The record is a 145-nucleotide RNA sequence from Priestia megaterium, which matches "c-di-AMP riboswitch aptamer (ydaO/yuaA leader)" in Rfam. The source organism's lineage runs through Bacteria, Bacillati, Bacilli, Priestia and Priestia megaterium. The match comes from Rfam's covariance-model search (107 bits).
RNA sequence: GAAUAAAAAUCGCUUAAUCCAUUACGGAGCGGAGGACCCAUUAUUUACGCACAUAUUGUGCUCCGGGGUGAAUCCUUAAAAAGGUAGGGUUACUCUUAAAACCCGAACCCGACAGCUAACUUCGCAAGCGUUUUGAGGGGGAAGA
Numbered sequence: 001g002a003a004u005a006a007a008a009a010u011c012g013c014u015u016a017a018u019c020c021a022u023u024a025c026g027g028a029g030c031g032g033a034g035g036a037c038c039c040a041u042u043a044u045u046u047a048c049g050c051a052c053a054u055a056u057u058g059u060g061c062u063c064c065g066g067g068g069u070g071a072a073u074c075c076u077u078a079a080a081a082a083g084g085u086a087g088g089g090u091u092a093c094u095c096u097u098a099a100a101a102c103c104c105g106a107a108c109c110c111g112a113c114a115g116c117u118a119a120c121u122u123c124g125c126a127a128g129c130g131u132u133u134u135g136a137g138g139g140g141g142a143a144g145a
Stems, first nucleotide, its partner, number of pairs: 011130004018028003029125006039065001066110003074084004087104004